[Rfam]
Nucleotides: 086
Base pairs, nucleotide, nucleotide: 001086002085003084004083005082006081007080008079011033012032023072024071025070026069027068035054036049037048038047039046059078060077061076062075063074
Number, partner (000 for none) and nucleotide at each position: 001086a002085g003084g004083a005082a006081u007080a008079g009000a010000a011033g012032u013000a014000g015000a016000a017000a018000a019000a020000u021000a022000u023072c024071g025070g026069u027068c028000g029000c030000a031000c032012a033011c034000g035054c036049a037048c038047c039046a040000a041000u042000u043000c044000g045000u046039u047038g048037g049036u050000a051000u052000c053000u054035g055000a056000g057000a058000g059078g060077u061076g062075g063074g064000g065000a066000a067000g068027g069026g070025c071024c072023g073000u074063c075062c076061c077060a078059c079008c080007u081006a082005u083004u084003c085002c086001u